Overview: A member of the RNA family "Molybdenum/Tungsten riboswitch aptamer (Moco RNA motif)" from Desulfotomaculum nigrificans, 116 nucleotides long.

RNA sequence: CAAUUUAAUCUGCUCCGAGCCCAACAGUCUAAGGCUUGCUAUGAUUGUUAGGCCGUCAGGGUUUACAGGGAAACCGGUAAGCCUCCCGUGUGGAAAGGAGCACAGUAUGAGAAUGU
Numbered sequence: 001c002a003a004u005u006u007a008a009u010c011u012g013c014u015c016c017g018a019g020c021c022c023a024a025c026a027g028u029c030u031a032a033g034g035c036u037u038g039c040u041a042u043g044a045u046u047g048u049u050a051g052g053c054c055g056u057c058a059g060g061g062u063u064u065a066c067a068g069g070g071a072a073a074c075c076g077g078u079a080a081g082c083c084u085c086c087c088g089u090g091u092g093g094a095a096a097g098g099a100g101c102a103c104a105g106u107a108u109g110a111g112a113a114u115g116u
Stems, first nucleotide, its partner, number of pairs: 004109001006107001011102006019053003023049007033040002059084008068075002085093002
A search with the family's covariance model found it, with a score of 82 bits. Taxonomically the source falls in Desulfotomaculum nigrificans (Bacteria, Bacillota, Clostridia, Eubacteriales).